Shown here is a 102-nucleotide RNA from Cognatundibacterium jejuense, a member of the family "TPP riboswitch aptamer (THI element)". Taxonomically the source falls in Cognatundibacterium (Bacteria, Pseudomonadati, Pseudomonadota, Burkholderiales). Rfam 15.1 lists 16,130 matches to the family in 8,693 species.
[Rfam]
RNA sequence: AAACAAUGCUAGGGGUCCUGAUAUCAAUGUUGAUAUCGGGUGAGAAAUACCCUCGAACCUGAUCUGGAUAAUGCCAGCGAAGGGAAGCCGCUAAAAAUCGUG
Numbered sequence: 001a002a003a004c005a006a007u008g009c010u011a012g013g014g015g016u017c018c019u020g021a022u023a024u025c026a027a028u029g030u031u032g033a034u035a036u037c038g039g040g041u042g043a044g045a046a047a048u049a050c051c052c053u054c055g056a057a058c059c060u061g062a063u064c065u066g067g068a069u070a071a072u073g074c075c076a077g078c079g080a081a082g083g084g085a086a087g088c089c090g091c092u093a094a095a096a097a098u099c100g101u102g
Stems, first nucleotide, its partner, number of pairs: 008088003011053004016047001017040009058083003064077004
A search with the family's covariance model found it, with a score of 62 bits. Gene Ontology term of the family: thiamine pyrophosphate binding. Vitamin B(1) in its active form thiamin pyrophosphate (TPP) is an essential coenzyme that is synthesised by coupling of pyrimidine and thiazole moieties in bacteria.